[Rfam]
Annotation:
A member of the RNA family "Small nucleolar RNA SNORD11B" from Baryphthengus martii, 85 nucleotides long. By type it is a C/D-box small nucleolar RNA. Its family is annotated with RNA processing and nucleolus in the Gene Ontology. Taxonomically the source falls in Baryphthengus (Eukaryota, Tetrapoda, Theropoda, Neoaves). The literature on the family includes a 2006 paper in Nucleic Acids Res by Yang et al., "snoSeeker: an advanced computational package for screening of guide and orphan snoRNA genes in the human genome".
RNA sequence: CGAUGGCAGUGAUGAUUCCUAUAUUGUUGCUUUCCUGAUGUACAGACAAUGAGGGUGCACAGUCACUACCUCAUCUGAGCCAUCU
Numbered sequence: 001c002g003a004u005g006g007c008a009g010u011g012a013u014g015a016u017u018c019c020u021a022u023a024u025u026g027u028u029g030c031u032u033u034c035c036u037g038a039u040g041u042a043c044a045g046a047c048a049a050u051g052a053g054g055g056u057g058c059a060c061a062g063u064c065a066c067u068a069c070c071u072c073a074u075c076u077g078a079g080c081c082a083u084c085u
Base pairs, nucleotide, nucleotide: 002084003083004082005081006080007079